[Rfam]
RNA sequence: UGGUUUUGUCCUAAGUCAAACUUUUCUAUCUUUGACCAAAUGUUUUGAAAAUAUAUUAACAUAUAUGCAUUCAAAUAAUGCUCUAUCCAAAUGUAUUUCAUGAAGAAUCUAAAGAAACUAAUUUGAUGUUCUAGAUGUUGGUACAUUUUUCUUUAAACUUGGUCAAACAUAAACAAGUUUGACUUAGGAAACCGAA
Numbered sequence: 001u002g003g004u005u006u007u008g009u010c011c012u013a014a015g016u017c018a019a020a021c022u023u024u025u026c027u028a029u030c031u032u033u034g035a036c037c038a039a040a041u042g043u044u045u046u047g048a049a050a051a052u053a054u055a056u057u058a059a060c061a062u063a064u065a066u067g068c069a070u071u072c073a074a075a076u077a078a079u080g081c082u083c084u085a086u087c088c089a090a091a092u093g094u095a096u097u098u099c100a101u102g103a104a105g106a107a108u109c110u111a112a113a114g115a116a117a118c119u120a121a122u123u124u125g126a127u128g129u130u131c132u133a134g135a136u137g138u139u140g141g142u143a144c145a146u147u148u149u150u151c152u153u154u155a156a157a158c159u160u161g162g163u164c165a166a167a168c169a170u171a172a173a174c175a176a177g178u179u180u181g182a183c184u185u186a187g188g189a190a191a192c193c194g195a196a
Base pairs, nucleotide, nucleotide: 005191006190009189011187012186013185014184015183016182017181018180019179020178021177022176023175025173031167032166033165034164035163047151048150049149050148051147054143055142056141058139059138060137061136062135064133065132067130071126072125073124074123075122076121
A member of the RNA family "MIR1435 microRNA precursor family" from Miscanthus lutarioriparius, 196 nucleotides long.
Taxonomically the source falls in Miscanthus (Eukaryota, Liliopsida, commelinids, Andropogonodae).
The family's consensus secondary structure was predicted with RNAalifold.